RNA sequence: GGGUGGGGGGAAGGGGCGCCGCCCCCAUCCCCACCCCAUAUACCAUAUAUGGGGUGGGGAUGGGGGCGGCGCCCCUUCCCCCCACCUC
Dot-bracket structure: (((.(((((....((((((((.((((.(..((((((...............)))))))....))))))))))))...)))))..))).

The family of this 88-nucleotide RNA from Taxus chinensis is "mir-541 microRNA precursor family". Taxonomically the source falls in Taxus (Eukaryota, Streptophyta, Conifers II, Cupressales). The base pairs follow the family's consensus structure, which was predicted with RNAalifold. The literature on the family includes a 2005 paper in BMC Bioinformatics by Sewer et al., "Identification of clustered microRNAs using an ab initio prediction method". Rfam 15.1 lists 125 matches to the family in 115 species. It scores 44 bits against the family's covariance model.